[Rfam]
RNA: nqrA-II ncRNA motif
Organism: Targowskia paracuniculus
RNA sequence: AUUUUGUCUAUUAAAGGAAUAGGCGAAAUCCGAUUUGAGAACUUAAUGUGGCGGUGUUAAGUAGGUGGGGGAACUCUUUACUUUUCAUUUUGCUGCGGCUCAAUAAAGCGGUUGCGGUUUCCGCAAUCAUAUUUUUUAACCCAACAAAGUAGUAAACAAUAUGA
Numbered sequence: 001a002u003u004u005u006g007u008c009u010a011u012u013a014a015a016g017g018a019a020u021a022g023g024c025g026a027a028a029u030c031c032g033a034u035u036u037g038a039g040a041a042c043u044u045a046a047u048g049u050g051g052c053g054g055u056g057u058u059a060a061g062u063a064g065g066u067g068g069g070g071g072a073a074c075u076c077u078u079u080a081c082u083u084u085u086c087a088u089u090u091u092g093c094u095g096c097g098g099c100u101c102a103a104u105a106a107a108g109c110g111g112u113u114g115c116g117g118u119u120u121c122c123g124c125a126a127u128c129a130u131a132u133u134u135u136u137u138a139a140c141c142c143a144a145c146a147a148a149g150u151a152g153u154a155a156a157c158a159a160u161a162u163g164a
Stems, first nucleotide, its partner, number of pairs: 002028011035103005047097006054088003059083007067076003108153002110128008131150005